[Rfam]
Rfam assigns this 112-nucleotide RNA from Bailinhaonella thermotolerans to the family "TPP riboswitch aptamer (THI element)". A search with the family's covariance model found it, with a score of 59 bits. Rfam describes the family as follows. Vitamin B(1) in its active form thiamin pyrophosphate (TPP) is an essential coenzyme that is synthesised by coupling of pyrimidine and thiazole moieties in bacteria. Taxonomically the source falls in Bailinhaonella (Bacteria, Actinomycetota, Streptosporangiales, Streptosporangiaceae).
RNA sequence: UGCACCACGCGCGGGAGCCCGGCGGGACCGGGCUGAGAGGAGGGCUGUCCGGCCCUCGACCGCCGAACCUGAUCCGGGUCAUACCGGCGAAGGGAGCGACCUGCGUUGACCC
Numbered sequence: 001u002g003c004a005c006c007a008c009g010c011g012c013g014g015g016a017g018c019c020c021g022g023c024g025g026g027a028c029c030g031g032g033c034u035g036a037g038a039g040g041a042g043g044g045c046u047g048u049c050c051g052g053c054c055c056u057c058g059a060c061c062g063c064c065g066a067a068c069c070u071g072a073u074c075c076g077g078g079u080c081a082u083a084c085c086g087g088c089g090a091a092g093g094g095a096g097c098g099a100c101c102u103g104c105g106u107u108g109a110c111c112c
Stems, first nucleotide, its partner, number of pairs: 008098003011063004017033005040057007068093003074087004